[Rfam]
RNA sequence: CCGUACAGCUCCUGCAUUGUACACACUGUGUGUAUCCCUUCUACAUGCACAGCGCAUACAAUGUGGAUGCUGUGUUG
Dot-bracket structure: ...........((.(((((((..(.((((((...............)))))).)..))))))).))...........
mir-460 microRNA precursor family: a 77-nucleotide RNA sequence from Scleropages formosus. Taxonomically the source falls in Scleropages (Eukaryota, Actinopteri, Teleostei, Osteoglossomorpha). On this family, see Chen et al., Genes Dev 2005: "The developmental miRNA profiles of zebrafish as determined by small RNA cloning". Pairs were carried over by alignment from the consensus structure, which was predicted with RNAalifold. A search with the family's covariance model found it, with a score of 82 bits.